small nucleolar RNA snoR126: a 115-nucleotide RNA sequence from Chenopodium quinoa. The family's consensus secondary structure was predicted with RNAalifold. The literature on the family includes a 2009 paper in Nucleic Acids Res by Chen and Wu, "Mining small RNA sequencing data: a new approach to identify small nucleolar RNAs in Arabidopsis". It is annotated as a C/D-box small nucleolar RNA.
[Rfam]
RNA sequence: AGGCAGUGAUGACAAAGACAUUUCUCGAUGCUGAAUUAGUCGUUUGAGACUAAUUGCGAGUAUGCAUUUUUGUGUGUACUUUCUUGAUGACCGCAUUUGUGCGUGUCUGAGCCUA
Numbered sequence: 001a002g003g004c005a006g007u008g009a010u011g012a013c014a015a016a017g018a019c020a021u022u023u024c025u026c027g028a029u030g031c032u033g034a035a036u037u038a039g040u041c042g043u044u045u046g047a048g049a050c051u052a053a054u055u056g057c058g059a060g061u062a063u064g065c066a067u068u069u070u071u072g073u074g075u076g077u078a079c080u081u082u083c084u085u086g087a088u089g090a091c092c093g094c095a096u097u098u099g100u101g102c103g104u105g106u107c108u109g110a111g112c113c114u115a
Stems, first nucleotide, its partner, number of pairs: 001114004